[Rfam]
RNA: c-di-GMP-II-GAG riboswitch aptamer
RNA sequence: CGUCAUACGGGAGGCUCUGAUCCGCCGGCGGCACGUUGCGGCCACCAAACACCGGCGGGGAGCCACUGGUGAGACCGGCCCGAGGGUCG
Numbered sequence: 001c002g003u004c005a006u007a008c009g010g011g012a013g014g015c016u017c018u019g020a021u022c023c024g025c026c027g028g029c030g031g032c033a034c035g036u037u038g039c040g041g042c043c044a045c046c047a048a049a050c051a052c053c054g055g056c057g058g059g060g061a062g063c064c065a066c067u068g069g070u071g072a073g074a075c076c077g078g079c080c081c082g083a084g085g086g087u088c089g
Stems, first nucleotide, its partner, number of pairs: 001089002004086001006084001008082004013064003022058007030050001040076002043071004